The record is a 215-nucleotide RNA from Membranihabitans marinus, which matches "Group II catalytic intron D1-D4-6" in Rfam.
[Rfam]
RNA sequence: CCAAUCCUGUCUGAUAAGGGUUAGCCCCCCAUCAGAAGCGAGUCUUGCAUAGUAAGUAGAGAUGCUUGCAUGAAGCGUAGACAGCGACUGCAAAAGGUGAGGAAUUAGUCUCGCAAGAUUAUAUAAAACCGGAGCUUUAGGCAUUAGCCCACCUGGAGCUAUAUGGUGCAAUCGAAAUGGCGAGAUUGUUACUGUCCGGUCGGGAUCUUGGACCU
Numbered sequence: 001c002c003a004a005u006c007c008u009g010u011c012u013g014a015u016a017a018g019g020g021u022u023a024g025c026c027c028c029c030c031a032u033c034a035g036a037a038g039c040g041a042g043u044c045u046u047g048c049a050u051a052g053u054a055a056g057u058a059g060a061g062a063u064g065c066u067u068g069c070a071u072g073a074a075g076c077g078u079a080g081a082c083a084g085c086g087a088c089u090g091c092a093a094a095a096g097g098u099g100a101g102g103a104a105u106u107a108g109u110c111u112c113g114c115a116a117g118a119u120u121a122u123a124u125a126a127a128a129c130c131g132g133a134g135c136u137u138u139a140g141g142c143a144u145u146a147g148c149c150c151a152c153c154u155g156g157a158g159c160u161a162u163a164u165g166g167u168g169c170a171a172u173c174g175a176a177a178u179g180g181c182g183a184g185a186u187u188g189u190u191a192c193u194g195u196c197c198g199g200u201c202g203g204g205a206u207c208u209u210g211g212a213c214c215u
Base pairs, nucleotide, nucleotide: 010036011035012034013033014032018030019029020028022183024181025180038085039084042082043081044080045079046077047076048072049071050070053068054067055066056065057064058063108206109205110204111203112202113201128200129199130198131197132196133195134159135158136157139154140153141152164194165193166192167191168190169188170187171186172185173184

Source information
It scores 116 bits against the family's covariance model. The pairing is the family consensus, mapped onto this sequence. Lineage of the source: Bacteria > Pseudomonadati > Saprospiria > Saprospirales > Membranihabitans.